RNA sequence: AAUUUAUCAUAGACAGUGUUUUAUACAGUUU
Numbered sequence: 001a002a003u004u005u006a007u008c009a010u011a012g013a014c015a016g017u018g019u020u021u022u023a024u025a026c027a028g029u030u031u
Base pairs, nucleotide, nucleotide: 001031002030004028005027007025009024010023011022012021013020014018

A member of the RNA family "Iron response element II" from Sparus aurata, 31 nucleotides long. IRE, TFRC, SLC40A1, SDHB, SLC11A2, CDC42BPA, ACO2, ALAS2_H.SAPIENS, CDC14A, EPAS1, ALAS2, qoxD, Hao1, NDUFS1, transferrin, Aconitate. NCBI's taxonomy places the organism under Eukaryota, Eumetazoa, Actinopterygii, Sparidae, Sparus. The match comes from Rfam's covariance-model search (32 bits). By type it is a cis-regulatory element.